[Rfam]
Nucleotides: 084
Stems, first nucleotide, its partner, number of pairs: 001084006013072001015070007023062002026059007034051003
Number, partner (000 for none) and nucleotide at each position: 001084c002083c003082u004081u005080a006079a007000a008000a009000u010000g011000c012000u013072a014000u015070a016069g017068c018067a019066g020065c021064a022000c023062a024061u025000c026059a027058u028057g029056g030055u031054u032053u033000a034051c035050a036049u037000a038000u039000u040000a041000u042000u043000g044000a045000c046000a047000a048000g049036a050035u051034g052000c053032g054031a055030a056029u057028c058027a059026u060000u061024a062023u063000u064021u065020g066019c067018u068017g069016c070015u071000u072013u073000a074000g075000a076000a077000a078000u079006u080005u081004g082003a083002g084001g
Record summary
Shown here is an 84-nucleotide RNA from Phascolarctos cinereus, a member of the family "mir-15 microRNA precursor family". A reference for the family is Lagos-Quintana et al. (2001), "Identification of novel genes coding for small expressed RNAs", Science. The organism belongs to Phascolarctos, within Eukaryota. Rfam describes the family as follows. This family represents the related mir-15a and mir-15b sequences. The family is grouped with related families in Rfam's "mir-15 clan".